[Rfam]
RNA sequence: UGACAACUGUAUUCGAGUGAGUGGAUAGAGUUGUCAUUCUCUAGCACCAUUCGAAUUCAGUGCUCG
Numbered sequence: 001u002g003a004c005a006a007c008u009g010u011a012u013u014c015g016a017g018u019g020a021g022u023g024g025a026u027a028g029a030g031u032u033g034u035c036a037u038u039c040u041c042u043a044g045c046a047c048c049a050u051u052c053g054a055a056u057u058c059a060g061u062g063c064u065c066g
Stems, first nucleotide, its partner, number of pairs: 001066003005061001007060003011056005017050003021047003026043004

Rfam assigns this 66-nucleotide RNA from Spodoptera exigua to the family "mir-29 microRNA precursor family". The family's consensus secondary structure was predicted with PFOLD. Its family is annotated with gene silencing by miRNA and RISC complex in the Gene Ontology. This family represents the microRNA (miRNA) precursors mir-29. A search with the family's covariance model found it, with a score of 48 bits.